[Rfam]
RNA sequence: ACCGGAAAGUUAGACAUCCUUCUGUAAGCAGGGUUGCGGUUUAUAAGGAGAUGAAUUCAUUCGCUGGUGGACUCACAGUCUAGUAUGUACUUUGUCGAAAACAGUGUCUUGGAGUGUCCAGUGUCAAUAUUCUGGUUCAGGCGCAGGCUUGAAUCAGGAGGUUGUUCGAUACUGGGGAAACGCCCGAGGGUAGCAAUACAGCAGGAAAAACCCAGAGCACCGGUUCGGCAGUGAGAUAGCACGUUGGAGGAGCAUCUAAGUAUACUACCACUACGUGUGGGAACUACCUCUUUUU
Numbered sequence: 001a002c003c004g005g006a007a008a009g010u011u012a013g014a015c016a017u018c019c020u021u022c023u024g025u026a027a028g029c030a031g032g033g034u035u036g037c038g039g040u041u042u043a044u045a046a047g048g049a050g051a052u053g054a055a056u057u058c059a060u061u062c063g064c065u066g067g068u069g070g071a072c073u074c075a076c077a078g079u080c081u082a083g084u085a086u087g088u089a090c091u092u093u094g095u096c097g098a099a100a101a102c103a104g105u106g107u108c109u110u111g112g113a114g115u116g117u118c119c120a121g122u123g124u125c126a127a128u129a130u131u132c133u134g135g136u137u138c139a140g141g142c143g144c145a146g147g148c149u150u151g152a153a154u155c156a157g158g159a160g161g162u163u164g165u166u167c168g169a170u171a172c173u174g175g176g177g178a179a180a181c182g183c184c185c186g187a188g189g190g191u192a193g194c195a196a197u198a199c200a201g202c203a204g205g206a207a208a209a210a211c212c213c214a215g216a217g218c219a220c221c222g223g224u225u226c227g228g229c230a231g232u233g234a235g236a237u238a239g240c241a242c243g244u245u246g247g248a249g250g251a252g253c254a255u256c257u258a259a260g261u262a263u264a265c266u267a268c269c270a271c272u273a274c275g276u277g278u279g280g281g282a283a284c285u286a287c288c289u290c291u292u293u294u295u
Base pairs, nucleotide, nucleotide: 001040002039003038004023005022006021007020009018011016028037029036030035043295045293046292047291048290049289050288052286054285056283057282058281060279062275063274065273066272067271068270069269070268077266078265079264081262082261084258085257087255088254090252091251092250093249095247100245101244102243104242105241106240107239108235109234110233111232114229115227116226118223119222121220122219123218124217125164126163127162128161130159131158132157133156134155135154136153137152138151139150140149141148142147165171172215173214174213175212176211184205185204190199191198192197